[Rfam]
RNA sequence: AAUAGAAGCAUGACAAAUUAGAUUUUUCCUUUUAAUUUUUAGCAUUUUUAGUUGGAUUUAAAUUUUUUCAGGAGGAAAAUGCUGGAAAUCAGGAGGAAAAAUCUUAUUUGUCAUACUCUUAUU
Numbered sequence: 001a002a003u004a005g006a007a008g009c010a011u012g013a014c015a016a017a018u019u020a021g022a023u024u025u026u027u028c029c030u031u032u033u034a035a036u037u038u039u040u041a042g043c044a045u046u047u048u049u050a051g052u053u054g055g056a057u058u059u060a061a062a063u064u065u066u067u068u069c070a071g072g073a074g075g076a077a078a079a080u081g082c083u084g085g086a087a088a089u090c091a092g093g094a095g096g097a098a099a100a101a102u103c104u105u106a107u108u109u110g111u112c113a114u115a116c117u118c119u120u121a122u123u
Stems, first nucleotide, its partner, number of pairs: 001123005007117002010114009020104008029095005035089005041083002045079004

About this RNA:
This 123-nucleotide RNA from Gossypium mustelinum belongs to the Rfam family "MIR7504 microRNA precursor family". The base pairs follow the family's consensus structure, which was predicted with RNAalifold. Its family is annotated with miRNA-mediated post-transcriptional gene silencing and RISC complex in the Gene Ontology. Rfam 15.1 lists 7,343 matches to the family in 61 species.